[Rfam]
RNA: Lysine riboswitch aptamer
Organism: Eisenbergiella massiliensis
RNA sequence: UUUCCAGAUAGAGGUUGCGUGAUUCAAGAGUAGCUUUUCCGAUGUGACAGGCACAGUUGAGGAAGAGGGAAAGGGGAGAACGCCGAAAGAGAAAGGCUCCUGCGGCCGGAAUCUUGGGCAUAGGGUGAACAACCAUAUGACUGUCAUCUAUAACAGAUGGGGCGCUAUCAUAAAA
Number, nucleotide and partner (000 for none) at each position: 001u000002u000003u000004c000005c000006a000007g169008a168009u167010a166011g165012a000013g000014g000015u000016u000017g083018c082019g081020u080021g000022a000023u077024u076025c075026a000027a000028g000029a000030g000031u000032a000033g000034c067035u066036u065037u064038u063039c062040c061041g000042a000043u000044g000045u000046g000047a000048c000049a000050g000051g000052c000053a000054c000055a000056g000057u000058u000059g000060a000061g040062g039063a038064a037065g036066a035067g034068g000069g000070a000071a000072a000073g000074g000075g025076g024077a023078g000079a000080a020081c019082g018083c017084c000085g000086a000087a115088a114089g113090a112091g000092a000093a000094a000095g107096g106097c105098u104099c000100c000101u000102g000103c000104g098105g097106c096107c095108g000109g000110a000111a000112u090113c089114u088115u087116g142117g141118g000119c139120a138121u137122a136123g000124g134125g133126u132127g000128a000129a000130c000131a000132a126133c125134c124135a000136u122137a121138u120139g119140a000141c117142u116143g000144u160145c159146a158147u157148c156149u155150a000151u000152a000153a000154c000155a149156g148157a147158u146159g145160g144161g000162g000163c000164g000165c011166u010167a009168u008169c007170a000171u000172a000173a000174a000175a000